Xanthine riboswitch aptamer (NMT1 RNA): a 54-nucleotide RNA from Acinetobacter higginsii. The base pairs follow the family's consensus structure, which is taken from published work. A reference for the family is Yu and Breaker (2020), "A bacterial riboswitch class senses xanthine and uric acid to regulate genes associated with purine oxidation", RNA.
Nucleotides: 054
Base pairs, nucleotide, nucleotide: 006049007048008047009046010045015039018041019040021037022036023035024034025033026032027031
Number, partner (000 for none) and nucleotide at each position: 001000u002000g003000a004000u005000u006049g007048a008047g009046u010045a011000u012000a013000a014000g015039c016000g017000g018041u019040c020000a021037g022036u023035a024034u025033g026032u027031u028000g029000c030000a031027a032026a033025c034024a035023u036022a037021c038000g039015g040019g041018a042000c043000a044000u045010u046009g047008c048007u049006c050000u051000a052000c053000a054000g